[Rfam]
Nucleotides: 144
Base pairs, nucleotide, nucleotide: 004141005140006139007138008137010135011134012133013132014131015130016129017128018127019126020125021124022123023122024121025120026119027118029116030115
Number, partner (000 for none) and nucleotide at each position: 001000u002000u003000a004141a005140u006139a007138u008137u009000u010135c011134u012133u013132g014131c015130u016129c017128a018127a019126a020125u021124g022123a023122g024121u025120a026119u027118u028000c029116c030115a031000g032000a033000a034000g035000g036000g037000c038000u039000u040000g041000c042000a043000g044000a045000a046000u047000u048000a049000a050000g051000c052000a053000a054000a055000g056000u057000a058000u059000a060000a061000u062000a063000a064000u065000a066000c067000u068000u069000u070000g071000u072000g073000u074000u075000u076000g077000a078000u079000g080000g081000a082000u083000a084000u085000g086000a087000a088000g089000g090000u091000u092000u093000u094000u095000g096000a097000u098000u099000a100000a101000u102000g103000g104000u105000u106000u107000u108000c109000u110000g111000c112000u113000g114000c115030u116029g117000a118027g119026a120025u121024g122023c123022u124021c125020a126019u127018u128017u129016g130015g131014g132013c133012a134011a135010g136000c137008a138007a139006u140005g141004u142000u143000a144000a
About this RNA
Shown here is a 144-nucleotide RNA sequence from Sesamum indicum, a member of the family "MIR828 microRNA precursor family". Its family is annotated with miRNA-mediated post-transcriptional gene silencing and RISC complex in the Gene Ontology. A search with the family's covariance model found it, with a score of 86 bits. A reference for the family is Rajagopalan et al. (2006), "A diverse and evolutionarily fluid set of microRNAs in Arabidopsis thaliana", Genes Dev.